[Rfam]
RNA: Selenocysteine insertion sequence 1
RNA sequence: GGUGUGUUCAUGAUGGUCUGGCUUUAAACUCUGCCGAGAAGGCAGAUCUGAUAUCUUACACU
Numbered sequence: 001g002g003u004g005u006g007u008u009c010a011u012g013a014u015g016g017u018c019u020g021g022c023u024u025u026a027a028a029c030u031c032u033g034c035c036g037a038g039a040a041g042g043c044a045g046a047u048c049u050g051a052u053a054u055c056u057u058a059c060a061c062u
Stems, first nucleotide, its partner, number of pairs: 001062005015048006022041003029038003